About this RNA:
Rfam assigns this 408-nucleotide sequence from Candidatus Velamenicoccus archaeovorus to the family "Bacterial RNase P class A". The family's RNA type in Rfam is ribozyme. Lineage of the source: Bacteria > Pseudomonadati > Candidatus Omnitrophota > Candidatus Velamenicoccus.
RNA sequence: AAAAUAGGCAGGAUAGCCGCCCAUGGAGGCCCGAAAGCCGCCGGGGAGGAAAGUCCGAGCUCUAGAGGACAACGCAGCGGGUAAUAACCGCCUCCGUUACGUUGCGUAACGGACGGAUCAGAGCCACAGAGACGAGUCCCGCCACCAGUGCGUCGGCGGGGGUGAAACGCGGCAAUCUCUGCGUAGAGCAAUGCCAAAUAGGCCCCGACAUCCUGGAUAACAGGAAUAGGGUUGUCCGCCUGAACAUCGUGUGUCGGAGCGGGUUGGCUGCUAGAUCCCACCGAGCAAUCGGAGGGAGAAGUCAAAUGGCUAUCGCCCCCGCCGUUUUGUUCCGCUUUUGGUGAAACCAGGCGAACCAAAACGCGAAAGCGGGGGAGACAGAACUCGGCUUAUAUGCCUAUUUUGCCG
Numbered sequence: 001a002a003a004a005u006a007g008g009c010a011g012g013a014u015a016g017c018c019g020c021c022c023a024u025g026g027a028g029g030c031c032c033g034a035a036a037g038c039c040g041c042c043g044g045g046g047a048g049g050a051a052a053g054u055c056c057g058a059g060c061u062c063u064a065g066a067g068g069a070c071a072a073c074g075c076a077g078c079g080g081g082u083a084a085u086a087a088c089c090g091c092c093u094c095c096g097u098u099a100c101g102u103u104g105c106g107u108a109a110c111g112g113a114c115g116g117a118u119c120a121g122a123g124c125c126a127c128a129g130a131g132a133c134g135a136g137u138c139c140c141g142c143c144a145c146c147a148g149u150g151c152g153u154c155g156g157c158g159g160g161g162g163u164g165a166a167a168c169g170c171g172g173c174a175a176u177c178u179c180u181g182c183g184u185a186g187a188g189c190a191a192u193g194c195c196a197a198a199u200a201g202g203c204c205c206c207g208a209c210a211u212c213c214u215g216g217a218u219a220a221c222a223g224g225a226a227u228a229g230g231g232u233u234g235u236c237c238g239c240c241u242g243a244a245c246a247u248c249g250u251g252u253g254u255c256g257g258a259g260c261g262g263g264u265u266g267g268c269u270g271c272u273a274g275a276u277c278c279c280a281c282c283g284a285g286c287a288a289u290c291g292g293a294g295g296g297a298g299a300a301g302u303c304a305a306a307u308g309g310c311u312a313u314c315g316c317c318c319c320c321g322c323c324g325u326u327u328u329g330u331u332c333c334g335c336u337u338u339u340g341g342u343g344a345a346a347c348c349a350g351g352c353g354a355a356c357c358a359a360a361a362c363g364c365g366a367a368a369g370c371g372g373g374g375g376a377g378a379c380a381g382a383a384c385u386c387g388g389c390u391u392a393u394a395u396g397c398c399u400a401u402u403u404u405g406c407c408g
Stems, first nucleotide, its partner, number of pairs: 001404010011393001012314007020046003025041001028038001051391003055388005060188004067248002072184005077091004092115001093113008116179002121177002123173003138161002142159002145156002148153001193268003202260002205257003244252003276297004281292004